[Rfam]
RNA: Vibrio RNA VqmR
RNA sequence: CCAAGCGUUAGGUCAGACCUACCGCCCGAUAUCUUAUUGAUAUCUCUGUGUUUUCAGCAGACCCUCGCUGAAAUCAUGGAACCUCUUCUACACGUCGACAAGAUAUGUUUCUUGUAUUUGUUGCCAGCCCGUCUUCAGGCUGGCUUUUUUUUCC
Numbered sequence: 001c002c003a004a005g006c007g008u009u010a011g012g013u014c015a016g017a018c019c020u021a022c023c024g025c026c027c028g029a030u031a032u033c034u035u036a037u038u039g040a041u042a043u044c045u046c047u048g049u050g051u052u053u054u055c056a057g058c059a060g061a062c063c064c065u066c067g068c069u070g071a072a073a074u075c076a077u078g079g080a081a082c083c084u085c086u087u088c089u090a091c092a093c094g095u096c097g098a099c100a101a102g103a104u105a106u107g108u109u110u111c112u113u114g115u116a117u118u119u120g121u122u123g124c125c126a127g128c129c130c131g132u133c134u135u136c137a138g139g140c141u142g143g144c145u146u147u148u149u150u151u152u153c154c
Base pairs, nucleotide, nucleotide: 005025006024007023010020011019012018028044029043030042031041032040033039052073053072054071055070056069057068058067098115099114100113101112102111103110123144124143125142126141127140128139129138